Rfam assigns this 71-nucleotide sequence from Alligator sinensis to the family "Mammalian CPEB3 ribozyme". A search with the family's covariance model found it, with a score of 37 bits.
RNA sequence: AGGGGUUGAGGCCAUAGCAGAAGGGCUCGCAGCAUGGCCUAUCAGACUCCAACAAAUCUGUGAAUUCUGCU
Numbered sequence: 001a002g003g004g005g006u007u008g009a010g011g012c013c014a015u016a017g018c019a020g021a022a023g024g025g026c027u028c029g030c031a032g033c034a035u036g037g038c039c040u041a042u043c044a045g046a047c048u049c050c051a052a053c054a055a056a057u058c059u060g061u062g063a064a065u066u067c068u069g070c071u
Base pairs, nucleotide, nucleotide: 010039011038012037013036016071017070018069019068020067021066022065023035025033043060044059045058046057048055